[Rfam]
RNA sequence: CUCACUAUGUGUAAACAACACACACGUAUCGACACCUGCGCCGGGGUGCCUUUAAAGCCUGAGGGCUUGCGAGGUCGGUUGUUAGGGAUACGUGGAGGCCCAAC
Numbered sequence: 001c002u003c004a005c006u007a008u009g010u011g012u013a014a015a016c017a018a019c020a021c022a023c024a025c026g027u028a029u030c031g032a033c034a035c036c037u038g039c040g041c042c043g044g045g046g047u048g049c050c051u052u053u054a055a056a057g058c059c060u061g062a063g064g065g066c067u068u069g070c071g072a073g074g075u076c077g078g079u080u081g082u083u084a085g086g087g088a089u090a091c092g093u094g095g096a097g098g099c100c101c102a103a104c
Stems, first nucleotide, its partner, number of pairs: 023094008035085001038082002040079004048075005